[Rfam]
RNA sequence: UUUGAUGCUGAUUGGCACACUCCCUGCUCAUGUAUCCGCAGACAUCGAGCCUGUCGGCACACGGCAGGCUCCCCGAAACGAAUCGGGACCGGACAAAGGCGUCCUUGCACUCACGGUGCAGGACGCC
Numbered sequence: 001u002u003u004g005a006u007g008c009u010g011a012u013u014g015g016c017a018c019a020c021u022c023c024c025u026g027c028u029c030a031u032g033u034a035u036c037c038g039c040a041g042a043c044a045u046c047g048a049g050c051c052u053g054u055c056g057g058c059a060c061a062c063g064g065c066a067g068g069c070u071c072c073c074c075g076a077a078a079c080g081a082a083u084c085g086g087g088a089c090c091g092g093a094c095a096a097a098g099g100c101g102u103c104c105u106u107g108c109a110c111u112c113a114c115g116g117u118g119c120a121g122g123a124c125g126c127c
Stems, first nucleotide, its partner, number of pairs: 012096003015027003049069005055063002072087005098127007106120006

This 127-nucleotide sequence from Pseudomonas fulva belongs to the Rfam family "Pseudomonas sRNA P11". The organism belongs to Pseudomonas fulva, within Bacteria.